[Rfam]
RNA: Streptomyces-metK RNA
Organism: Streptomyces mashuensis
RNA sequence: CGGGGACCGGGCGUCCUCAAUCGACAGAACGCCGGAUAAACUGGCACCGGAUCCGUCGAGCGCAGCUCUCGAACGGGUCCGUCAAUGAUCAGACAGCAGCCGCUGCAACCCCAGGGAG
Numbered sequence: 001c002g003g004g005g006a007c008c009g010g011g012c013g014u015c016c017u018c019a020a021u022c023g024a025c026a027g028a029a030c031g032c033c034g035g036a037u038a039a040a041c042u043g044g045c046a047c048c049g050g051a052u053c054c055g056u057c058g059a060g061c062g063c064a065g066c067u068c069u070c071g072a073a074c075g076g077g078u079c080c081g082u083c084a085a086u087g088a089u090c091a092g093a094c095a096g097c098a099g100c101c102g103c104u105g106c107a108a109c110c111c112c113a114g115g116g117a118g
Stems, first nucleotide, its partner, number of pairs: 049080006056072005094105004